Rfam assigns this 74-nucleotide sequence from Suricata suricatta to the family "U1A polyadenylation inhibition element (PIE)". Rfam's curators write: This family represents the U1A polyadenylation inhibition element (PIE). PIE is a regulatory RNA which is responsible for the regulation of the length of the polyA tail of the U1A pre-mRNA. The PIE is located in the U1A mRNA 3' UTR. PIE adopts a U-shaped structure, with binding sites for a single U1A protein at each bend and when complexed with the two proteins it blocks activity of poly(A) polymerase (PAP), and inhibits its activity. NCBI's taxonomy places the organism under Eukaryota, Craniata, Laurasiatheria, Herpestidae, Suricata. It scores 93 bits against the family's covariance model.
[Rfam]
RNA sequence: CCAGACAGCAUUGUACCCAGAGUCUGUCCCCAGACAUUGUACCUGGGGCUGUUAGGUUGGAAUUAAAGUGUCUU
Numbered sequence: 001c002c003a004g005a006c007a008g009c010a011u012u013g014u015a016c017c018c019a020g021a022g023u024c025u026g027u028c029c030c031c032a033g034a035c036a037u038u039g040u041a042c043c044u045g046g047g048g049c050u051g052u053u054a055g056g057u058u059g060g061a062a063u064u065a066a067a068g069u070g071u072c073u074u
Stems, first nucleotide, its partner, number of pairs: 005052005017046004022035005